[Rfam]
RNA: Archaeal small subunit ribosomal RNA, nucleotides 519 to 876
Organism: Sulfolobales archaeon HS-7
RNA sequence: GGCCUAAAGCGCCCGUAGCCGGCCUUAUAAGUCCGUGCUUAAAGACCCGGGCUCAACCUGGGAGGGGGCACGGAUACUGUAAGGCUAGGGGGCGGGAGAGGCCAGGGGUACUUCCAGAGUAGGGGCGAAAUCCUCAGAUACUGGAAGGACCACCAGUGGCGAAGGCGCCUGGCUAGAACGCGCCCGACGGUGAGGGGCGAAAGCCAGGGUAGCAAAGGGGAUUAGAUACCCCCGUAGUCCUGGCUGUAAACGAUGCGGGCUAGAUGUUAGCUGGGCUUUGUGCCCAGCUAGUGUCGCAGGGAAGCCGUUAAGCCCGCCGCCUGGGGAGUACGGCCGCAAGGCUGAAACUUAAAGGAAU
Number, nucleotide and partner (000 for none) at each position: 001g321002g320003c319004c000005u000006a000007a000008a000009g318010c000011g198012c197013c196014c195015g000016u192017a000018g191019c190020c189021g000022g085023c084024c083025u082026u081027a080028u079029a000030a078031g077032u074033c073034c072035g071036u070037g069038c068039u067040u066041a000042a000043a000044g000045a000046c062047c061048c060049g059050g058051g057052c000053u000054c000055a000056a000057c051058c050059u049060g048061g047062g046063a000064g000065g000066g040067g039068g038069c037070a036071c035072g034073g033074a032075u000076a000077c031078u030079g028080u027081a026082a025083g024084g023085c022086u000087a000088g000089g185090g184091g183092g181093c180094g179095g000096g000097a000098g000099a000100g174101g173102c172103c171104a170105g169106g168107g151108g150109u000110a000111c147112u146113u145114c144115c143116a142117g141118a000119g000120u000121a000122g133123g132124g131125g000126c000127g000128a000129a000130a000131u124132c123133c122134u000135c000136a000137g000138a000139u000140a000141c117142u116143g115144g114145a113146a112147g111148g000149a000150c108151c107152a000153c000154c000155a000156g000157u000158g000159g166160c165161g000162a000163a000164g000165g160166c159167g000168c106169c105170u104171g103172g102173c101174u100175a000176g000177a000178a000179c094180g093181c092182g000183c091184c090185c089186g000187a000188c000189g020190g019191u018192g016193a000194g000195g014196g013197g012198c011199g000200a000201a000202a000203g244204c243205c242206a241207g240208g239209g000210u000211a000212g238213c237214a000215a000216a000217g233218g232219g231220g230221a000222u000223u000224a000225g000226a000227u000228a000229c000230c220231c219232c218233c217234g000235u000236a000237g213238u212239c208240c207241u206242g205243g204244c203245u000246g000247u000248a000249a000250a000251c000252g000253a000254u000255g317256c316257g315258g314259g313260c312261u000262a000263g295264a294265u293266g292267u291268u290269a289270g288271c287272u286273g285274g284275g283276c282277u000278u000279u000280g000281u000282g276283c275284c274285c273286a272287g271288c270289u269290a268291g267292u266293g265294u264295c263296g000297c000298a000299g306300g305301g000302a000303a000304g000305c300306c299307g000308u000309u000310a000311a000312g260313c259314c258315c257316g256317c255318c009319g003320c002321c001322u000323g350324g349325g348326g000327a000328g000329u000330a000331c000332g343333g342334c341335c340336g000337c000338a000339a000340g335341g334342c333343u332344g000345a000346a000347a000348c325349u324350u323351a000352a000353a000354g000355g000356a000357a000358u000